The family of this 126-nucleotide RNA sequence from Paenibacillus anaericanus is "pan motif". By type it is a cis-regulatory element. A search with the family's covariance model found it, with a score of 43 bits.

RNA sequence: GAGGCGGUAUUAGUUAUUCUAAACUGCACUCAUGGCGGUAUGACAGUGUGACUUAUGAAAAUUUCUUGAAUUUGUUAUUGGUAACGUUGGAUUCUGCUCUGAGCCGUAAAGGACCGAGACAGAAGG
Numbered sequence: 001g002a003g004g005c006g007g008u009a010u011u012a013g014u015u016a017u018u019c020u021a022a023a024c025u026g027c028a029c030u031c032a033u034g035g036c037g038g039u040a041u042g043a044c045a046g047u048g049u050g051a052c053u054u055a056u057g058a059a060a061a062u063u064u065c066u067u068g069a070a071u072u073u074g075u076u077a078u079u080g081g082u083a084a085c086g087u088u089g090g091a092u093u094c095u096g097c098u099c100u101g102a103g104c105c106g107u108a109a110a111g112g113a114c115c116g117a118g119a120c121a122g123a124a125g126g
Stems, first nucleotide, its partner, number of pairs: 001031003004027005010022004094122003097118003101114001104112002